RNA sequence: UUAUUCACAAUAAAAAGAAAAGUAAUAAGUCGUUCACUUUCAGCGAGCUUGUGACUGGUGAAAACAAGCAUUGAACUCUUAUGAAGAUGGUCUUUUUGUGAUUUCAAUGUGAGUCCCAGAUAAGCAUUGGACGUCUACUUACGUUACAAGUUUGAGGUGACUAUUUUGUCACGAAUAUAGGUGGUACCACGAAACUUUCGUCCUUGUA
Dot-bracket structure: ......((......((((......(((((......(.(........((((((...........))))))).).....)))))........))))...))....(((((((.............))))))).(((......))).............(((((......)))))......(((.......(((((...))))))))....
Numbered sequence: 001u002u003a004u005u006c007a008c009a010a011u012a013a014a015a016a017g018a019a020a021a022g023u024a025a026u027a028a029g030u031c032g033u034u035c036a037c038u039u040u041c042a043g044c045g046a047g048c049u050u051g052u053g054a055c056u057g058g059u060g061a062a063a064a065c066a067a068g069c070a071u072u073g074a075a076c077u078c079u080u081a082u083g084a085a086g087a088u089g090g091u092c093u094u095u096u097u098g099u100g101a102u103u104u105c106a107a108u109g110u111g112a113g114u115c116c117c118a119g120a121u122a123a124g125c126a127u128u129g130g131a132c133g134u135c136u137a138c139u140u141a142c143g144u145u146a147c148a149a150g151u152u153u154g155a156g157g158u159g160a161c162u163a164u165u166u167u168g169u170c171a172c173g174a175a176u177a178u179a180g181g182u183g184g185u186a187c188c189a190c191g192a193a194a195c196u197u198u199c200g201u202c203c204u205u206g207u208a
Stems, first nucleotide, its partner, number of pairs: 007099002015094004025082005036072001038070001047069006104130007132143003157172005179204003189201005
A member of the RNA family "T-box leader" from Macrococcus lamae, 208 nucleotides long. On this family, see Winkler et al., RNA 2001: "The GA motif: an RNA element common to bacterial antitermination systems, rRNA, and eukaryotic RNAs". The base pairs follow the family's consensus structure, which is taken from published work. Rfam links the family to the GO term tRNA binding. It scores 113 bits against the family's covariance model. Rfam classes the family as a cis-regulatory leader. NCBI's taxonomy places the organism under Bacteria, Bacillota, Bacilli, Staphylococcaceae, Macrococcus.